[Rfam]
c-di-AMP riboswitch aptamer (ydaO/yuaA leader): a 242-nucleotide RNA from Rhodococcus sp. SMB37. The source organism's lineage runs through Bacteria, Actinomycetes, Mycobacteriales, Nocardiaceae and Rhodococcus. It scores 52 bits against the family's covariance model.
RNA sequence: AUUCCUGUCCCGCGGAAGUCCGGUUAUCCCGACAAACGAUCCACGAGGGACAGGAAACGGGGGACCCAACCGGUCUCCCUCGGAAGCACCCGGCCCCGCCGGUCGCUUCCUCGGAGGCCCGGCCCGCCGCUCACGCGGCAGGCCUUGGGGUGAAGCCGGAACGCUCGACGAGCGCAACGGCCGGACUACCUCUUCAGUCCGAACCCGACAGCUGACCUCGUAGGCGCGUGCGGAGAGGAAAC
Numbered sequence: 001a002u003u004c005c006u007g008u009c010c011c012g013c014g015g016a017a018g019u020c021c022g023g024u025u026a027u028c029c030c031g032a033c034a035a036a037c038g039a040u041c042c043a044c045g046a047g048g049g050a051c052a053g054g055a056a057a058c059g060g061g062g063g064a065c066c067c068a069a070c071c072g073g074u075c076u077c078c079c080u081c082g083g084a085a086g087c088a089c090c091c092g093g094c095c096c097c098g099c100c101g102g103u104c105g106c107u108u109c110c111u112c113g114g115a116g117g118c119c120c121g122g123c124c125c126g127c128c129g130c131u132c133a134c135g136c137g138g139c140a141g142g143c144c145u146u147g148g149g150g151u152g153a154a155g156c157c158g159g160a161a162c163g164c165u166c167g168a169c170g171a172g173c174g175c176a177a178c179g180g181c182c183g184g185a186c187u188a189c190c191u192c193u194u195c196a197g198u199c200c201g202a203a204c205c206c207g208a209c210a211g212c213u214g215a216c217c218u219c220g221u222a223g224g225c226g227c228g229u230g231c232g233g234a235g236a237g238g239a240a241a242c
Stems, first nucleotide, its partner, number of pairs: 002056010057221006067147002148206003156180003183200004